[Rfam]
RNA sequence: UCUGUCAACGGUAAGCGGACUGAACGGAACGCCAGUGGAGUGAGGGAGCAUUAAGGAGUUGAUAGACUUACUGAC
Numbered sequence: 001u002c003u004g005u006c007a008a009c010g011g012u013a014a015g016c017g018g019a020c021u022g023a024a025c026g027g028a029a030c031g032c033c034a035g036u037g038g039a040g041u042g043a044g045g046g047a048g049c050a051u052u053a054a055g056g057a058g059u060u061g062a063u064a065g066a067c068u069u070a071c072u073g074a075c
Base pairs, nucleotide, nucleotide: 001066002065003064004063005062006061007060008059009058
RNA: Bacillus-plasmid RNA
Organism: Pullulanibacillus pueri